The record is a 167-nucleotide RNA from Ipomoea nil, which matches "small nucleolar RNA snoR143" in Rfam. The match comes from Rfam's covariance-model search (117 bits). The family has 3 seed sequences and 660 matches in Rfam 15.1. Taxonomically the source falls in Ipomoea (Eukaryota, Viridiplantae, Magnoliopsida, Convolvulaceae). Pairs were carried over by alignment from the consensus structure, which was predicted with RNAalifold.
RNA sequence: UUGCACCAGCAAGGGCUUCGCCAAAGUUAAAAUGGCGACGCCCGAUCUGCUAUUGUGCAUAAAGUGAAAGCUGAGCUUUAGUCAGCGGCGGCCAGACAACCGCUGAGAUGGAUCCACAGAUGAGUUCUUUCAAAAUAGGACUUGUCUACUAAUUCCAUCUCACAUCU
Numbered sequence: 001u002u003g004c005a006c007c008a009g010c011a012a013g014g015g016c017u018u019c020g021c022c023a024a025a026g027u028u029a030a031a032a033u034g035g036c037g038a039c040g041c042c043c044g045a046u047c048u049g050c051u052a053u054u055g056u057g058c059a060u061a062a063a064g065u066g067a068a069a070g071c072u073g074a075g076c077u078u079u080a081g082u083c084a085g086c087g088g089c090g091g092c093c094a095g096a097c098a099a100c101c102g103c104u105g106a107g108a109u110g111g112a113u114c115c116a117c118a119g120a121u122g123a124g125u126u127c128u129u130u131c132a133a134a135a136u137a138g139g140a141c142u143u144g145u146c147u148a149c150u151a152a153u154u155c156c157a158u159c160u161c162a163c164a165u166c167u
Base pairs, nucleotide, nucleotide: 002059003058004057005056006055008051009050010049013043014042015041016040018038019037020036021035022034023033105161106160107159108158109157110156111155112154123143124142125140126139127138